[Rfam]
RNA sequence: CGGUGGUAACCGGGCCCCUCUGGCGGAGCACGUCUGGAUGACGUGGCCGCGAUGUCGGAACCGCCUU
Numbered sequence: 001c002g003g004u005g006g007u008a009a010c011c012g013g014g015c016c017c018c019u020c021u022g023g024c025g026g027a028g029c030a031c032g033u034c035u036g037g038a039u040g041a042c043g044u045g046g047c048c049g050c051g052a053u054g055u056c057g058g059a060a061c062c063g064c065c066u067u
Stems, first nucleotide, its partner, number of pairs: 006061002010058004023050004029045006

Shown here is a 67-nucleotide sequence from Allobosea sp. AAP35, a member of the family "terC RNA". It scores 46 bits against the family's covariance model. NCBI's taxonomy places the organism under Bacteria, Pseudomonadota, Alphaproteobacteria, Alloboseaceae, Allobosea.